A member of the RNA family "mir-194 microRNA precursor family" from Sus scrofa, 76 nucleotides long.
NCBI's taxonomy places the organism under Eukaryota, Craniata, Sarcopterygii, Laurasiatheria, Sus.
Rfam links the family to the GO terms miRNA-mediated post-transcriptional gene silencing and RISC complex.
The family's consensus secondary structure was predicted with RNAalifold.

[Rfam]
RNA sequence: UGCCACCCCCUGUAACAGCAACUCCAUGUGGAAGUGCCCACUAGUUCCAGUGGGGCUGCUGUUAUCUGGGGUGGGG
Numbered sequence: 001u002g003c004c005a006c007c008c009c010c011u012g013u014a015a016c017a018g019c020a021a022c023u024c025c026a027u028g029u030g031g032a033a034g035u036g037c038c039c040a041c042u043a044g045u046u047c048c049a050g051u052g053g054g055g056c057u058g059c060u061g062u063u064a065u066c067u068g069g070g071g072u073g074g075g076g
Base pairs, nucleotide, nucleotide: 006071007070008069012065013064014063015062016061017060018059019058022055023054024053025052026051027050029049030048031047